[Rfam]
RNA sequence: GCUCCUCAAAUCAGGUAGGACUACCCGCUGAACUUAAGCAUAUCAAUAAGCGGAGGAAAAAGAAACCAACAGGGAUUGCCCCAGUAACGGCGAGUGAAGCGGCAAAAGCUCAAAUUUGAAAUCCUGCGGGAAUUGUAAUUUGAAGGUUUCGUGGUCUGAGUCGGCCGCGCCCAAGUCCAUUGGAACAUGGCGCCUGGGAGGGUGAGAGCCCCGUAUGGCGCACGCCGACUCUUUGUACACCGCGGCUCCGACGAGUCGAGUUGUUUGGGAAUGCAGCUCUAAGUGGGUGGUAAAUUCCAUCUAAAGCUAAAUAUUGGCGAGAGACCGAUAGCGAACAAGUACAGUGAUGGAAAGAUGAAAAGCACUUUGAAAAGAGAGUGAAACAGCACGUGAAAUUGUUGAAAGGGAAGGGCUUGCAAGCAGACACGGUUUUACCGGGCCAGCGUCGAAAAGGGGGGAGGAACAAGAACUCGAGAAAUGUGGCGCGCACCUUCGGGCGCGCGUGUUAUAGCUCGUGUUGACGCCUCCAUCCCUUUUCGAGGCCUGCGAUUCUAGGACGCUGGCGUAAUGGUUGCAAGCCGCCCGUCUUGAAACACGG
Numbered sequence: 001g002c003u004c005c006u007c008a009a010a011u012c013a014g015g016u017a018g019g020a021c022u023a024c025c026c027g028c029u030g031a032a033c034u035u036a037a038g039c040a041u042a043u044c045a046a047u048a049a050g051c052g053g054a055g056g057a058a059a060a061a062g063a064a065a066c067c068a069a070c071a072g073g074g075a076u077u078g079c080c081c082c083a084g085u086a087a088c089g090g091c092g093a094g095u096g097a098a099g100c101g102g103c104a105a106a107a108g109c110u111c112a113a114a115u116u117u118g119a120a121a122u123c124c125u126g127c128g129g130g131a132a133u134u135g136u137a138a139u140u141u142g143a144a145g146g147u148u149u150c151g152u153g154g155u156c157u158g159a160g161u162c163g164g165c166c167g168c169g170c171c172c173a174a175g176u177c178c179a180u181u182g183g184a185a186c187a188u189g190g191c192g193c194c195u196g197g198g199a200g201g202g203u204g205a206g207a208g209c210c211c212c213g214u215a216u217g218g219c220g221c222a223c224g225c226c227g228a229c230u231c232u233u234u235g236u237a238c239a240c241c242g243c244g245g246c247u248c249c250g251a252c253g254a255g256u257c258g259a260g261u262u263g264u265u266u267g268g269g270a271a272u273g274c275a276g277c278u279c280u281a282a283g284u285g286g287g288u289g290g291u292a293a294a295u296u297c298c299a300u301c302u303a304a305a306g307c308u309a310a311a312u313a314u315u316g317g318c319g320a321g322a323g324a325c326c327g328a329u330a331g332c333g334a335a336c337a338a339g340u341a342c343a344g345u346g347a348u349g350g351a352a353a354g355a356u357g358a359a360a361a362g363c364a365c366u367u368u369g370a371a372a373a374g375a376g377a378g379u380g381a382a383a384c385a386g387c388a389c390g391u392g393a394a395a396u397u398g399u400u401g402a403a404a405g406g407g408a409a410g411g412g413c414u415u416g417c418a419a420g421c422a423g424a425c426a427c428g429g430u431u432u433u434a435c436c437g438g439g440c441c442a443g444c445g446u447c448g449a450a451a452a453g454g455g456g457g458g459a460g461g462a463a464c465a466a467g468a469a470c471u472c473g474a475g476a477a478a479u480g481u482g483g484c485g486c487g488c489a490c491c492u493u494c495g496g497g498c499g500c501g502c503g504u505g506u507u508a509u510a511g512c513u514c515g516u517g518u519u520g521a522c523g524c525c526u527c528c529a530u531c532c533c534u535u536u537u538c539g540a541g542g543c544c545u546g547c548g549a550u551u552c553u554a555g556g557a558c559g560c561u562g563g564c565g566u567a568a569u570g571g572u573u574g575c576a577a578g579c580c581g582c583c584c585g586u587c588u589u590g591a592a593a594c595a596c597g598g
Stems, first nucleotide, its partner, number of pairs: 024055001025053005035042002066073002077104004087095002107308004113140004119134002122131003145249002148245002152242004158231006167221005175191001177190004194198001201211002258279007285302005342349002365376004411580009421570002427437003441562007583598004
RNA: Eukaryotic large subunit ribosomal RNA, nucleotides 1 to 598
Organism: Clavispora lusitaniae